Shown here is an 84-nucleotide sequence from Physcomitrium patens, a member of the family "Small nucleolar RNA Z102/R77". It is annotated as a C/D-box small nucleolar RNA. Taxonomically the source falls in Physcomitrium (Eukaryota, Embryophyta, Bryophyta, Funariaceae). Rfam 15.1 lists 1,346 matches to the family in 224 species. A search with the family's covariance model found it, with a score of 44 bits. On this family, see Barneche et al., J Mol Biol 2001: "Identification of 66 box C/D snoRNAs in Arabidopsis thaliana: extensive gene duplications generated multiple isoforms predicting new ribosomal RNA 2'-O-methylation sites".
Nucleotides: 084
Base pairs, nucleotide, nucleotide: 002083003082004081005080041054042053043052
Number, partner (000 for none) and nucleotide at each position: 001000c002083a003082g004081u005080g006000a007000g008000g009000u010000g011000a012000u013000g014000a015000a016000c017000u018000a019000c020000u021000g022000u023000u024000u025000c026000u027000c028000u029000a030000u031000u032000g033000g034000u035000u036000u037000g038000a039000c040000g041054g042053u043052c044000a045000c046000a047000a048000u049000g050000a051000u052043g053042g054041c055000a056000c057000a058000u059000u060000a061000u062000u063000g064000c065000u066000u067000c068000a069000a070000a071000c072000u073000u074000g075000c076000u077000g078000a079000u080005c081004a082003c083002u084000u
The base pairs follow the family's consensus structure, which was predicted with PFOLD.